[Rfam]
RNA: c-di-AMP riboswitch aptamer (ydaO/yuaA leader)
Organism: Phytohabitans rumicis
RNA sequence: GGCCCGGUGCCGCCGAAUCGCUGGAUGAUCACUGUCCGUAAGCGAACCGGGGACCCAACUCGAGUAAUGGGGUGAAUCCGCGCCACGCGCGGAAGGGCGUUCUUCCCGCCCGAACCCGUCAGCUAACUCGGUAGGCGGCGUUGCGGAAGAAG
Numbered sequence: 001g002g003c004c005c006g007g008u009g010c011c012g013c014c015g016a017a018u019c020g021c022u023g024g025a026u027g028a029u030c031a032c033u034g035u036c037c038g039u040a041a042g043c044g045a046a047c048c049g050g051g052g053a054c055c056c057a058a059c060u061c062g063a064g065u066a067a068u069g070g071g072g073u074g075a076a077u078c079c080g081c082g083c084c085a086c087g088c089g090c091g092g093a094a095g096g097g098c099g100u101u102c103u104u105c106c107c108g109c110c111c112g113a114a115c116c117c118g119u120c121a122g123c124u125a126a127c128u129c130g131g132u133a134g135g136c137g138g139c140g141u142u143g144c145g146g147a148a149g150a151a152g
Base pairs, nucleotide, nucleotide: 011137012136013135014134018045019044020043021042022041046132047131048130049129050128051127056069057068070117071116072115078092079091080090081089095111096110097109098108